The family of this 135-nucleotide RNA sequence from Dendrobium catenatum is "U11 spliceosomal RNA". The match comes from Rfam's covariance-model search (49 bits). A reference for the family is Montzka and Steitz (1988), "Additional low-abundance human small nuclear ribonucleoproteins: U11, U12, etc", Proc Natl Acad Sci U S A.
[Rfam]
RNA sequence: AAAAAGGGUCGGUUGGCUAUGCAUGUCACGUACAUCUUUUAAUUGAUGGAUGUUGUAUGAUUAUAUGGACAUAUGGCCGACAUAAUUUAUGAAUGCUAUUGGGUUGGCUUGCUCAGUUGCUUGGCUAACCCUCUU
Number, nucleotide and partner (000 for none) at each position: 001a000002a000003a000004a000005a000006g000007g000008g081009u080010c079011g078012g077013u000014u028015g027016g026017c025018u000019a000020u000021g000022c000023a000024u000025g017026u016027c015028a014029c052030g051031u050032a000033c048034a047035u046036c045037u000038u000039u000040u000041a000042a000043u000044u000045g036046a035047u034048g033049g000050a031051u030052g029053u076054u075055g074056u073057a072058u071059g070060a000061u000062u000063a000064u000065a000066u000067g000068g000069a000070c059071a058072u057073a056074u055075g054076g053077c012078c011079g010080a009081c008082a000083u000084a000085a000086u000087u000088u000089a000090u000091g000092a000093a000094u000095g000096c000097u000098a000099u000100u000101g131102g130103g129104u128105u127106g126107g125108c000109u124110u123111g122112c000113u000114c000115a000116g000117u000118u000119g000120c000121u000122u111123g110124g109125c107126u106127a105128a104129c103130c102131c101132u000133c000134u000135u000